Rfam assigns this 237-nucleotide RNA sequence from Leptolyngbya sp. FACHB-321 to the family "Group II catalytic intron D1-D4-6". The literature on the family includes a 2001 paper in Trends Genet by Bonen and Vogel, "The ins and outs of group II introns". About the family: Group II introns are found in rRNA, tRNA and mRNA of organelles in fungi, plants and protists, and also in mRNA in bacteria.
[Rfam]
RNA sequence: AGAGUCCCAGUUCUGGAAGCCCUGGCAAGGCACCAGGUACUGAGUGUUGCGUUAGCGAUGGCAACCUCGUUGGCGAAGCGUACACAAGGAGGUCAUGGGCUGCAAUGCGACAGCGUAAAGGGAUUGAGCCCCGUUAUGAAAUGAAACCGUGGAUGCCGACGCUGUUAGCAAAGCGGAAGGCAACACUAAAGAAGCCAACUGCCACGGCUUUGGCGGGUCCACCGGGGUCUAAAGACC
Numbered sequence: 001a002g003a004g005u006c007c008c009a010g011u012u013c014u015g016g017a018a019g020c021c022c023u024g025g026c027a028a029g030g031c032a033c034c035a036g037g038u039a040c041u042g043a044g045u046g047u048u049g050c051g052u053u054a055g056c057g058a059u060g061g062c063a064a065c066c067u068c069g070u071u072g073g074c075g076a077a078g079c080g081u082a083c084a085c086a087a088g089g090a091g092g093u094c095a096u097g098g099g100c101u102g103c104a105a106u107g108c109g110a111c112a113g114c115g116u117a118a119a120g121g122g123a124u125u126g127a128g129c130c131c132c133g134u135u136a137u138g139a140a141a142u143g144a145a146a147c148c149g150u151g152g153a154u155g156c157c158g159a160c161g162c163u164g165u166u167a168g169c170a171a172a173g174c175g176g177a178a179g180g181c182a183a184c185a186c187u188a189a190a191g192a193a194g195c196c197a198a199c200u201g202c203c204a205c206g207g208c209u210u211u212g213g214c215g216g217g218u219c220c221a222c223c224g225g226g227g228u229c230u231a232a233a234g235a236c237c
Stems, first nucleotide, its partner, number of pairs: 012037005019031003023204004040088002044085004048080002050075009060065001125231001126229001128228006149222006155181003160175004186216002191211006